[Rfam]
RNA sequence: CGGGAGCAACCGACGUUAGGGAAUUCGGCAAGUUAGUCCCGUAAGUUCGCGAUAAGGGAUGCCUGCUCUGUAUAAGAGCAGGCCGCAGUGACUCGGACGCUCCAACUGUCUAGUAACAACAUAGGUGACCGCAAAUCCGCAAGGACUCGUACGGUCACUGAAUCCUGCCCAGUGCGGGUAUCUGAACACCUAGUACAAUAGGACGAAGGACCCGUUAACGGCGGGGGUAACUAUGACCCUCUUAAGGUAGCGUAGUACCUUGCCGCUUCAGUAGCGGCUUGCAUGAAUGGAUCAAUGAGAGCGUCACUGUCCCAACGUUGGGCCCGGUGAACUGUACAUUCCAGUGCGGAGUCUGGAGA
Numbered sequence: 001c002g003g004g005a006g007c008a009a010c011c012g013a014c015g016u017u018a019g020g021g022a023a024u025u026c027g028g029c030a031a032g033u034u035a036g037u038c039c040c041g042u043a044a045g046u047u048c049g050c051g052a053u054a055a056g057g058g059a060u061g062c063c064u065g066c067u068c069u070g071u072a073u074a075a076g077a078g079c080a081g082g083c084c085g086c087a088g089u090g091a092c093u094c095g096g097a098c099g100c101u102c103c104a105a106c107u108g109u110c111u112a113g114u115a116a117c118a119a120c121a122u123a124g125g126u127g128a129c130c131g132c133a134a135a136u137c138c139g140c141a142a143g144g145a146c147u148c149g150u151a152c153g154g155u156c157a158c159u160g161a162a163u164c165c166u167g168c169c170c171a172g173u174g175c176g177g178g179u180a181u182c183u184g185a186a187c188a189c190c191u192a193g194u195a196c197a198a199u200a201g202g203a204c205g206a207a208g209g210a211c212c213c214g215u216u217a218a219c220g221g222c223g224g225g226g227g228u229a230a231c232u233a234u235g236a237c238c239c240u241c242u243u244a245a246g247g248u249a250g251c252g253u254a255g256u257a258c259c260u261u262g263c264c265g266c267u268u269c270a271g272u273a274g275c276g277g278c279u280u281g282c283a284u285g286a287a288u289g290g291a292u293c294a295a296u297g298a299g300a301g302c303g304u305c306a307c308u309g310u311c312c313c314a315a316c317g318u319u320g321g322g323c324c325c326g327g328u329g330a331a332c333u334g335u336a337c338a339u340u341c342c343a344g345u346g347c348g349g350a351g352u353c354u355g356g357a358g359a
Stems, first nucleotide, its partner, number of pairs: 001326004010321008019312003036060005045050001061083009084088001096305007103297002107121003124159008132149001136145003162292004167222003172219002174215005181210003189202004223241006242246001262278006340357005
RNA: Archaeal large subunit ribosomal RNA, nucleotides 1718 to 2076